[Rfam]
RNA: MAT2A 3'UTR stem loop F
RNA sequence: CAUAAAGAAAACUGUCUUGGCUGGUGUGGUACAGAGAAGCCAGCUUGCUUACAUGCUUAUUCCGUG
Dot-bracket structure: (((..((.((.(.(.(..(((((((((...))......))))))).).).....).)).))..)))